[Rfam]
The family of this 104-nucleotide RNA sequence from Marinococcus luteus is "TPP riboswitch aptamer (THI element)".
Taxonomically the source falls in Marinococcus (Bacteria, Bacillati, Bacilli, Bacillaceae).
It scores 84 bits against the family's covariance model.
The base pairs follow the family's consensus structure, which is taken from published work.
RNA sequence: GGAAUCCACUAGGGGUGCCGGCAACGGCUGAGAUAAGGACGAUCCUUAAUCCCUUUGAACCUGAUCUGGUUAAGGCCAGCGUAGGAAAGUGGAGACGGCAGAAU
Numbered sequence: 001g002g003a004a005u006c007c008a009c010u011a012g013g014g015g016u017g018c019c020g021g022c023a024a025c026g027g028c029u030g031a032g033a034u035a036a037g038g039a040c041g042a043u044c045c046u047u048a049a050u051c052c053c054u055u056u057g058a059a060c061c062u063g064a065u066c067u068g069g070u071u072a073a074g075g076c077c078a079g080c081g082u083a084g085g086a087a088a089g090u091g092g093a094g095a096c097g098g099c100a101g102a103a104u
Stems, first nucleotide, its partner, number of pairs: 006092005011054004016048001017028004035047005060085004066079004